[Rfam]
RNA sequence: AGCCCUUGAUGACAAACUCUUUAUUUCUGACACCUCGUAUGAGCGCUGCUUACGCAGCCCUUGAUUCUACAAUUUACCUGAGGCUC
Numbered sequence: 001a002g003c004c005c006u007u008g009a010u011g012a013c014a015a016a017c018u019c020u021u022u023a024u025u026u027c028u029g030a031c032a033c034c035u036c037g038u039a040u041g042a043g044c045g046c047u048g049c050u051u052a053c054g055c056a057g058c059c060c061u062u063g064a065u066u067c068u069a070c071a072a073u074u075u076a077c078c079u080g081a082g083g084c085u086c
Base pairs, nucleotide, nucleotide: 001085002084003083004082045058046057047056048055049054
This 86-nucleotide RNA from Gadus morhua belongs to the Rfam family "Small nucleolar RNA SNORD60". By type it is a C/D-box small nucleolar RNA. It scores 71 bits against the family's covariance model. Clan: SNORD60 clan. Taxonomically the source falls in Gadus (Eukaryota, Eumetazoa, Bilateria, Ctenosquamata). For this family Rfam cites "Purified box C/D snoRNPs are able to reproduce site-specific 2'-O-methylation of target RNA in vitro" (Galardi et al., Mol Cell Biol, 2002).